[Rfam]
RNA: GA-cis RNA
RNA sequence: UUCAGGAGGUCCCCAAAUGAUGCGCAGCAUCAUUUUUGCAUGGGACCGACGACCUGCCGCCGAAGCUUUGGCUGAGGGGGCGACACUUAAG
Numbered sequence: 001u002u003c004a005g006g007a008g009g010u011c012c013c014c015a016a017a018u019g020a021u022g023c024g025c026a027g028c029a030u031c032a033u034u035u036u037u038g039c040a041u042g043g044g045a046c047c048g049a050c051g052a053c054c055u056g057c058c059g060c061c062g063a064a065g066c067u068u069u070g071g072c073u074g075a076g077g078g079g080g081c082g083a084c085a086c087u088u089a090a091g
Stems, first nucleotide, its partner, number of pairs: 008047006017033006056081003060077002064073002